The record is a 111-nucleotide RNA sequence from Cloacibacillus porcorum, which matches "drum RNA" in Rfam. The base pairs follow the family's consensus structure, which is taken from published work. The family's RNA type in Rfam is small RNA.

[Rfam]
RNA sequence: GAGCGUUGAUAUGCAGGGUCGUGCCGGCGUUCGGUUCUGCUUGUAGCUUUAAUGGGUUCGCACAUAACCACAAGCCGGAUAGGAUUUUUAUCCAAAAAGGAAAGUGCCGAA
Numbered sequence: 001g002a003g004c005g006u007u008g009a010u011a012u013g014c015a016g017g018g019u020c021g022u023g024c025c026g027g028c029g030u031u032c033g034g035u036u037c038u039g040c041u042u043g044u045a046g047c048u049u050u051a052a053u054g055g056g057u058u059c060g061c062a063c064a065u066a067a068c069c070a071c072a073a074g075c076c077g078g079a080u081a082g083g084a085u086u087u088u089u090a091u092c093c094a095a096a097a098a099g100g101a102a103a104g105u106g107c108c109g110a111a
Base pairs, nucleotide, nucleotide: 001049002048003047004046011042013040014039015038016037017036018035019034020033021032024078025077026076027075061106062105063104082093083092084091085090